[Rfam]
RNA: Group II catalytic intron D1-D4-5
RNA sequence: GAUAACUAUUCAGACGAGAUAAGGAAUGAUGGAGUAACGCCCUGAAACUUAUCCAGUGAGAUUUCCACCCGCAUUAUACAGGCAUGUAUAGAUGUGGAAAGCCGGAUAAAAUAUGCAAUCACGAACCGAAGUGUCCGAUAAGGAUAACCGAAAGCCCAAGGGAAUAAUAAACCCGUGGGAAUUGUUCAAGUAUUGUAUGCUGUCAACCGA
Numbered sequence: 001g002a003u004a005a006c007u008a009u010u011c012a013g014a015c016g017a018g019a020u021a022a023g024g025a026a027u028g029a030u031g032g033a034g035u036a037a038c039g040c041c042c043u044g045a046a047a048c049u050u051a052u053c054c055a056g057u058g059a060g061a062u063u064u065c066c067a068c069c070c071g072c073a074u075u076a077u078a079c080a081g082g083c084a085u086g087u088a089u090a091g092a093u094g095u096g097g098a099a100a101g102c103c104g105g106a107u108a109a110a111a112u113a114u115g116c117a118a119u120c121a122c123g124a125a126c127c128g129a130a131g132u133g134u135c136c137g138a139u140a141a142g143g144a145u146a147a148c149c150g151a152a153a154g155c156c157c158a159a160g161g162g163a164a165u166a167a168u169a170a171a172c173c174c175g176u177g178g179g180a181a182u183u184g185u186u187c188a189a190g191u192a193u194u195g196u197a198u199g200c201u202g203u204c205a206a207c208c209g210a
Base pairs, nucleotide, nucleotide: 018053019052020051021050022049023048031043032042034040054202055201056200057199064106065105066104069097070096071095072094074091075090076089077088078087079086080085113198114197115196116195117194123187124186125185126184128157133148134147169182172179173178